[Rfam]
RNA sequence: AGAAAGGUUUUCUAGGGUUCCGCGGCUGCUUUGUGGCCGGCCUGUGACCGAGAGAAAACGCGCGGCAUUCUCGCGUACACGGAGGGACAAAAGCCCGGGAGGA
Numbered sequence: 001a002g003a004a005a006g007g008u009u010u011u012c013u014a015g016g017g018u019u020c021c022g023c024g025g026c027u028g029c030u031u032u033g034u035g036g037c038c039g040g041c042c043u044g045u046g047a048c049c050g051a052g053a054g055a056a057a058a059c060g061c062g063c064g065g066c067a068u069u070c071u072c073g074c075g076u077a078c079a080c081g082g083a084g085g086g087a088c089a090a091a092a093g094c095c096c097g098g099g100a101g102g103a
Stems, first nucleotide, its partner, number of pairs: 007059006015049002020046001021044001022042001023039006060076005065070001078098001080101001084096003
The record is a 103-nucleotide sequence from Geobacillus stearothermophilus, which matches "Guanidine-I riboswitch aptamer" in Rfam. Gene Ontology term of the family: regulation of gene expression. Rfam's curators put it in the seed alignment.